RNA sequence: CUUCGUUCCGGGCUUGUUUAAGUUGCCUGUACGUGUGUGUAUGUGGGACACAGGCAGCUAAAGCAAGCCUGGAAACUGA
Numbered sequence: 001c002u003u004c005g006u007u008c009c010g011g012g013c014u015u016g017u018u019u020a021a022g023u024u025g026c027c028u029g030u031a032c033g034u035g036u037g038u039g040u041a042u043g044u045g046g047g048a049c050a051c052a053g054g055c056a057g058c059u060a061a062a063g064c065a066a067g068c069c070u071g072g073a074a075a076c077u078g079a
Stems, first nucleotide, its partner, number of pairs: 006074003010070010021059009033049001
mir-1788 microRNA precursor family: a 79-nucleotide sequence from Callorhinchus milii. Rfam links the family to the GO terms miRNA-mediated post-transcriptional gene silencing and RISC complex. Lineage of the source: Eukaryota > Eumetazoa > Vertebrata > Chondrichthyes > Callorhinchus.